[Rfam]
RNA sequence: UGGCUGUAGUGGUCAUUUCGGUAGAAGGCUCUCAAAAUUCUCCUUCUGCUGCUCCAUGUCCGUUCAGAUCCCCCUAAUGUCGCCCAGCGCGAAUGCCGCAGUGACCACCCACUCGCACGGGUAACCUGCGAUCGCUUGGUGUGGUCCUAAGCAAUGAAGAUGAUUCUUGAGGGAGGUCUCACUCUGCAGAGGCAUCUUCACUGUCGCAUGGCGCGCUGGAUUACGAUCGUUAGGGGCUUGGAGUAGUGGGCUGAGAUGGAGGUGUCAACUCCUUUU
Numbered sequence: 001u002g003g004c005u006g007u008a009g010u011g012g013u014c015a016u017u018u019c020g021g022u023a024g025a026a027g028g029c030u031c032u033c034a035a036a037a038u039u040c041u042c043c044u045u046c047u048g049c050u051g052c053u054c055c056a057u058g059u060c061c062g063u064u065c066a067g068a069u070c071c072c073c074c075u076a077a078u079g080u081c082g083c084c085c086a087g088c089g090c091g092a093a094u095g096c097c098g099c100a101g102u103g104a105c106c107a108c109c110c111a112c113u114c115g116c117a118c119g120g121g122u123a124a125c126c127u128g129c130g131a132u133c134g135c136u137u138g139g140u141g142u143g144g145u146c147c148u149a150a151g152c153a154a155u156g157a158a159g160a161u162g163a164u165u166c167u168u169g170a171g172g173g174a175g176g177u178c179u180c181a182c183u184c185u186g187c188a189g190a191g192g193c194a195u196c197u198u199c200a201c202u203g204u205c206g207c208a209u210g211g212c213g214c215g216c217u218g219g220a221u222u223a224c225g226a227u228c229g230u231u232a233g234g235g236g237c238u239u240g241g242a243g244u245a246g247u248g249g250g251c252u253g254a255g256a257u258g259g260a261g262g263u264g265u266c267a268a269c270u271c272c273u274u275u276u
Base pairs, nucleotide, nucleotide: 001015002014003013004012020272021271027266028265029264031262032261036257038255039254040253045250046249047248048247049246050245051244052243053242054241055240056239058237072236073235075232076231077230078229079228080226081225082224084219085218086217087216088215089214090213091212093209094208095207096206098204099203100202101201103146105144106143107142108141109139110138111137113131114130115129116128117127119126120125147151155200156199157198158197159196160195161194165192166191167190168189173184174183175182
RNA: Fungal signal recognition particle RNA